This 96-nucleotide RNA sequence from Molossus molossus belongs to the Rfam family "Vault RNA".
About the family: This family of RNAs are found as part of the enigmatic vault ribonucleoprotein complex.
Rfam classes the family as a non-coding RNA gene.
Lineage of the source: Eukaryota > Bilateria > Vertebrata > Eutheria > Molossus.
A search with the family's covariance model found it, with a score of 74 bits.
[Rfam]
RNA sequence: GGGCUGGCUUUAGCCCAGCGGUUCCUUCGCAUGGAACUUUCACCACUCUUGUCCGCGAGGGUGGUUCGAGACCCGCGGGUGCUCUCCGGCCCUUAA
Numbered sequence: 001g002g003g004c005u006g007g008c009u010u011u012a013g014c015c016c017a018g019c020g021g022u023u024c025c026u027u028c029g030c031a032u033g034g035a036a037c038u039u040u041c042a043c044c045a046c047u048c049u050u051g052u053c054c055g056c057g058a059g060g061g062u063g064g065u066u067c068g069a070g071a072c073c074c075g076c077g078g079g080u081g082c083u084c085u086c087c088g089g090c091c092c093u094u095a096a
Stems, first nucleotide, its partner, number of pairs: 002091006013080004018076004026070004